The record is a 350-nucleotide RNA from Hydrogenophaga sp. IBVHS2, which matches "Bacterial RNase P class A" in Rfam. By type it is a ribozyme. The source organism's lineage runs through Bacteria, Pseudomonadati, Pseudomonadota, Burkholderiales and Hydrogenophaga. It scores 177 bits against the family's covariance model.
[Rfam]
RNA sequence: GGAGCGCGCCGGACCGCCGCUGGCACAAGGCCCGAAAGGGUGUGCUGGAGGAACGUCCGGACUGCACAGGACAGCGCAGGAGGUAACACCUCUCCACCGAAAGGCCGGCCGGGGCAACCCGGGCGGCCCCAAGGUGAGGAUCAGAGCAACAGAGACGAGCCGAUUCAGUUCGGGUGAAACGGGCAAUCUCUGCGCGCAGCAAUACCAAAUAGGCCAGCGUCGAGGUGGUUCCGCUGAGCUGGCGGGUAGGUAGCACCGAGCCGGGUGGGCAACCCCCGGCCCAGAUGAAUGGCGGUCACGCCCCGGGCAACCGGGGUGCACAGAAUCCGGCUUACAGGCGCGCUCCACAA
Numbered sequence: 001g002g003a004g005c006g007c008g009c010c011g012g013a014c015c016g017c018c019g020c021u022g023g024c025a026c027a028a029g030g031c032c033c034g035a036a037a038g039g040g041u042g043u044g045c046u047g048g049a050g051g052a053a054c055g056u057c058c059g060g061a062c063u064g065c066a067c068a069g070g071a072c073a074g075c076g077c078a079g080g081a082g083g084u085a086a087c088a089c090c091u092c093u094c095c096a097c098c099g100a101a102a103g104g105c106c107g108g109c110c111g112g113g114g115c116a117a118c119c120c121g122g123g124c125g126g127c128c129c130c131a132a133g134g135u136g137a138g139g140a141u142c143a144g145a146g147c148a149a150c151a152g153a154g155a156c157g158a159g160c161c162g163a164u165u166c167a168g169u170u171c172g173g174g175u176g177a178a179a180c181g182g183g184c185a186a187u188c189u190c191u192g193c194g195c196g197c198a199g200c201a202a203u204a205c206c207a208a209a210u211a212g213g214c215c216a217g218c219g220u221c222g223a224g225g226u227g228g229u230u231c232c233g234c235u236g237a238g239c240u241g242g243c244g245g246g247u248a249g250g251u252a253g254c255a256c257c258g259a260g261c262c263g264g265g266u267g268g269g270c271a272a273c274c275c276c277c278g279g280c281c282c283a284g285a286u287g288a289a290u291g292g293c294g295g296u297c298a299c300g301c302c303c304c305g306g307g308c309a310a311c312c313g314g315g316g317u318g319c320a321c322a323g324a325a326u327c328c329g330g331c332u333u334a335c336a337g338g339c340g341c342g343c344u345c346c347a348c349a350a
Stems, first nucleotide, its partner, number of pairs: 001346010011335001012297007020048008053333001055331001057330005062199004070230002074195005079093005094138001095136004139190002144188002146184002160173004203252004213243006224235004260280006267274002